The family of this 78-nucleotide RNA from Aphidius gifuensis is "mir-980 microRNA precursor family".

[Rfam]
Nucleotides: 078
Stems, first nucleotide, its partner, number of pairs: 004075001006073004012067004017062003023056002028051002031048002
Number, partner (000 for none) and nucleotide at each position: 001000a002000u003000u004075a005000u006073g007072a008071u009070g010000g011000a012067g013066c014065u015064c016000a017062u018061c019060a020000u021000u022000u023056g024055g025000c026000a027000u028051c029050u030000u031048g032047c033000u034000g035000a036000a037000u038000u039000u040000u041000a042000a043000a044000a045000a046000u047032g048031c049000u050029a051028g052000c053000u054000g055024c056023c057000u058000u059000u060019u061018g062017a063000a064015g065014g066013g067012c068000a069000a070009c071008g072007u073006u074000u075004u076000g077000a078000u